About this RNA
mir-3193 microRNA precursor family: a 55-nucleotide RNA from Pan troglodytes. NCBI's taxonomy places the organism under Eukaryota, Bilateria, Primates, Haplorrhini, Pan. The family has 2 seed sequences and 24 matches in Rfam 15.1.

RNA sequence: UCCUGCGUAGGAUCUGAGGAGUGGACGAGUCUCAUUACCCAGCUCCUGAGCAGGA
Numbered sequence: 001u002c003c004u005g006c007g008u009a010g011g012a013u014c015u016g017a018g019g020a021g022u023g024g025a026c027g028a029g030u031c032u033c034a035u036u037a038c039c040c041a042g043c044u045c046c047u048g049a050g051c052a053g054g055a
Base pairs, nucleotide, nucleotide: 001055002054003053004052005051006050008048009047010046011045012044014042015041016040018039019038020036021035022034023033024031025030